[Rfam]
RNA sequence: CUAUGUUGCCUUUCUUGGACGUUUCCUCCCUAAACUCGGCGGUGCUUCGGCACCGCCUUUUUUUUGGACCCU
Numbered sequence: 001c002u003a004u005g006u007u008g009c010c011u012u013u014c015u016u017g018g019a020c021g022u023u024u025c026c027u028c029c030c031u032a033a034a035c036u037c038g039g040c041g042g043u044g045c046u047u048c049g050g051c052a053c054c055g056c057c058u059u060u061u062u063u064u065u066g067g068a069c070c071c072u
Stems, first nucleotide, its partner, number of pairs: 008020001010018002038057008

A member of the RNA family "Makes More Granules Regulator RNA (mmgR)" from Teichococcus oryzae, 72 nucleotides long.
Pairs were carried over by alignment from the consensus structure.
About the family: SuhB later renamed mmgR (makes more granules regulator) was a putative non-coding RNA found multiple times in the Agrobacterium tumefaciens genome and related alpha-proteobacteria. Other non-coding RNAs uncovered in the same analysis include: speF, ybhL, metA, and serC.Several studies inSinorhizobium meliloti showed that suhB element is indeed a non-coding RNA:firstly it was detected on Northern blot and called Sm8RNA, secondly in an RNAseq study referred to as SmelC689.The mutant phenotype's (strain lacking the small RNA) cytoplasm contains higher content of polyhydroxybutyrate (PBH)storage granules than wild type strain.
The source organism's lineage runs through Bacteria, Pseudomonadota, Alphaproteobacteria, Acetobacterales and Roseomonas.
Rfam 15.1 lists 1,791 matches to the family in 918 species.
Clan: suhB sRNA clan.